[Rfam]
RNA sequence: AAAAGUAAACCUUUUACAACGGAUCGUUUGGCACGUACCUGCCAAUGAAAGGAAAGAAAA
Numbered sequence: 001a002a003a004a005g006u007a008a009a010c011c012u013u014u015u016a017c018a019a020c021g022g023a024u025c026g027u028u029u030g031g032c033a034c035g036u037a038c039c040u041g042c043c044a045a046u047g048a049a050a051g052g053a054a055a056g057a058a059a060a
Base pairs, nucleotide, nucleotide: 010052011051012050013049014048015047016046028045029044030043031042032041033040
msiK RNA: a 60-nucleotide RNA sequence from Galliscardovia ingluviei.
The match comes from Rfam's covariance-model search (65 bits).
Taxonomically the source falls in Galliscardovia (Bacteria, Bacillati, Actinomycetota, Bifidobacteriales).
The base pairs follow the family's consensus structure, which is taken from published work.